[Rfam]
Nucleotides: 070
Stems, first nucleotide, its partner, number of pairs: 002010003014029004019024001041068004046063002
Number, partner (000 for none) and nucleotide at each position: 001000a002010u003009c004008g005000g006000c007000a008004u009003g010002a011000c012000u013000c014029c015028g016027g017026u018000u019024c020000c021000u022000c023000c024019g025000c026017g027016c028015u029014g030000u031000c032000c033000g034000c035000a036000c037000c038000c039000a040000c041068c042067u043066g044065a045000c046063g047062g048000c049000u050000g051000c052000u053000c054000g055000c056000u057000a058000c059000g060000u061000g062047u063046u064000a065044u066043c067042a068041g069000c070000c
Rfam assigns this 70-nucleotide RNA from Xanthomonas campestris to the family "Xanthomonas sRNA sX9". The literature on the family includes a 2011 paper in Nucleic Acids Res by Schmidtke et al., "Genome-wide transcriptome analysis of the plant pathogen Xanthomonas identifies sRNAs with putative virulence functions". A search with the family's covariance model found it, with a score of 65 bits. Rfam classes the family as a small RNA.